[Rfam]
RNA sequence: AUGCCAUGGUGUUGGCACUUCCUUAGCAUCUCCUUAUAUCGAUCUCAAGCCUCACACAGAGAUUCUCCAGUUUGUUGUGCAAAAACUGAGUAAGAGCAUUCCUGAUUGC
Numbered sequence: 001a002u003g004c005c006a007u008g009g010u011g012u013u014g015g016c017a018c019u020u021c022c023u024u025a026g027c028a029u030c031u032c033c034u035u036a037u038a039u040c041g042a043u044c045u046c047a048a049g050c051c052u053c054a055c056a057c058a059g060a061g062a063u064u065c066u067c068c069a070g071u072u073u074g075u076u077g078u079g080c081a082a083a084a085a086c087u088g089a090g091u092a093a094g095a096g097c098a099u100u101c102c103u104g105a106u107u108g109c
Stems, first nucleotide, its partner, number of pairs: 003107001005104002057074002060071001
RNA: Plant small nucleolar RNA R71
Organism: Apium graveolens